[Rfam]
RNA: Burkholderia RNA 7 (anti-hemB)
RNA sequence: UCCCUGCUUUUCCUCCCUGAGCAGGAGCCUGGUCGUGACAGCGAUAGGGCUUUGCAACCCCGGCAUUGCGUCCGGGGUUUUUCUUU
Numbered sequence: 001u002c003c004c005u006g007c008u009u010u011u012c013c014u015c016c017c018u019g020a021g022c023a024g025g026a027g028c029c030u031g032g033u034c035g036u037g038a039c040a041g042c043g044a045u046a047g048g049g050c051u052u053u054g055c056a057a058c059c060c061c062g063g064c065a066u067u068g069c070g071u072c073c074g075g076g077g078u079u080u081u082u083c084u085u086u
Stems, first nucleotide, its partner, number of pairs: 003025006027050004033044003057078007